[Rfam]
The record is a 100-nucleotide RNA from Methylomonas sp. LWB, which matches "t44 RNA" in Rfam. Rfam classes the family as a small RNA. Pairs were carried over by alignment from the consensus structure, which was predicted with LocARNA. Taxonomically the source falls in Methylomonas (Bacteria, Pseudomonadota, Gammaproteobacteria, Methylococcaceae).
RNA sequence: UUCACCAAGUAACCAAUACUCACACUUAUCGACACGAUCGGUGGGGUGCUCGCCUUUUUAGAAAAGUCGGGUCACCGGUCGGGAUCAGUGGAGGCGUAAC
Number, nucleotide and partner (000 for none) at each position: 001u000002u000003c000004a000005c000006c000007a000008a000009g000010u000011a000012a000013c000014c000015a000016a000017u000018a000019c000020u000021c000022a000023c090024a089025c088026u087027u000028a085029u084030c083031g000032a000033c000034a000035c081036g080037a079038u078039c077040g076041g075042u074043g073044g000045g000046g000047u000048g072049c071050u070051c069052g068053c000054c000055u000056u000057u000058u000059u000060a000061g000062a000063a000064a000065a000066g000067u000068c052069g051070g050071g049072u048073c043074a042075c041076c040077g039078g038079u037080c036081g035082g000083g030084a029085u028086c000087a026088g025089u024090g023091g000092a000093g000094g000095c000096g000097u000098a000099a000100c000